[Rfam]
RNA sequence: CUUACGAAAUGGCAAACUUAUCGAAAGGUAAGGACGCAAAGCCACAGGCCUACGACAAUUGUUAUGGCAGCUGGGUUACCGAA
Dot-bracket structure: ...........((...((((((....))))))...))..((((.((((((....((....))...)))..)))))))......
Description:
Shown here is an 83-nucleotide RNA sequence from Litchfieldia stipae, a member of the family "c-di-GMP-I riboswitch aptamer". The family's consensus secondary structure is taken from published work. The match comes from Rfam's covariance-model search (83 bits). On this family, see Weinberg et al., Nucleic Acids Res 2007: "Identification of 22 candidate structured RNAs in bacteria using the CMfinder comparative genomics pipeline".